[Rfam]
RNA sequence: CAACUGUUUGCGGGAGAGAGCAGCGCAAAGCUGCCGCCGAAGGGGAAAUCGCCCGAAAUCUCUCAGGCAAAAGAACCGUAAGCAGGAA
Numbered sequence: 001c002a003a004c005u006g007u008u009u010g011c012g013g014g015a016g017a018g019a020g021c022a023g024c025g026c027a028a029a030g031c032u033g034c035c036g037c038c039g040a041a042g043g044g045g046a047a048a049u050c051g052c053c054c055g056a057a058a059u060c061u062c063u064c065a066g067g068c069a070a071a072a073g074a075a076c077c078g079u080a081a082g083c084a085g086g087a088a
Base pairs, nucleotide, nucleotide: 006083007082008081009080010079011078012077013076020034021033022032023031036068037067038066039064040063043062044061045060049056050055
The record is an 88-nucleotide RNA from Aquamicrobium lusatiense, which matches "Glycine riboswitch aptamer" in Rfam.